Rfam assigns this 135-nucleotide RNA sequence from Microcebus murinus to the family "U4atac minor spliceosomal RNA".
The literature on the family includes a 2005 paper in RNA by Lorkovic et al., "Evolutionary conservation of minor U12-type spliceosome between plants and humans".
By type it is a spliceosomal small nuclear RNA.
U4atac is an essential component of the minor U12-type spliceosome complex which is required for removal of the rarer class of eukaryotic introns (AT-AC, U12-type).
A search with the family's covariance model found it, with a score of 92 bits.
The base pairs follow the family's consensus structure, which is taken from published work.

[Rfam]
RNA sequence: ACCAUCCUUUUCUUGGGGUGGGGCCACUGUCCAAUGAGCACCAAAUGAGGGCAGUACUGCUAACGCCUACACAACAUACACAACACACCUGCAUCAACUAGAGCUUUGCUUUAAUUCAGUGCAAUUUUUGGAAAA
Numbered sequence: 001a002c003c004a005u006c007c008u009u010u011u012c013u014u015g016g017g018g019u020g021g022g023g024c025c026a027c028u029g030u031c032c033a034a035u036g037a038g039c040a041c042c043a044a045a046u047g048a049g050g051g052c053a054g055u056a057c058u059g060c061u062a063a064c065g066c067c068u069a070c071a072c073a074a075c076a077u078a079c080a081c082a083a084c085a086c087a088c089c090u091g092c093a094u095c096a097a098c099u100a101g102a103g104c105u106u107u108g109c110u111u112u113a114a115u116u117c118a119g120u121g122c123a124a125u126u127u128u129u130g131g132a133a134a135a
Stems, first nucleotide, its partner, number of pairs: 006018004021060001023058001026055007038046001091122004099113006